[Rfam]
Nucleotides: 057
Stems, first nucleotide, its partner, number of pairs: 018037008
Number, partner (000 for none) and nucleotide at each position: 001000u002000g003000c004000a005000a006000g007000u008000a009000u010000u011000u012000u013000u014000c015000g016000a017000u018037u019036a020035a021034g022033a023032a024031g025030u026000a027000a028000u029000u030025g031024c032023u033022u034021c035020u036019u037018g038000u039000a040000c041000a042000g043000a044000u045000u046000g047000u048000g049000u050000a051000u052000g053000a054000a055000u056000u057000g
This 57-nucleotide RNA sequence belongs to the Rfam family "Plastid-rps18 3UTR RNA".
Rfam's curators write: Plastid rps18 is a non-coding RNA (ncRNA) present in plastids. It was identified as a short stem-loop motif in the 3 prime untranslate region (3UTR) of rps18 gene.
The family has 238 seed sequences and 1,462 matches in Rfam 15.1.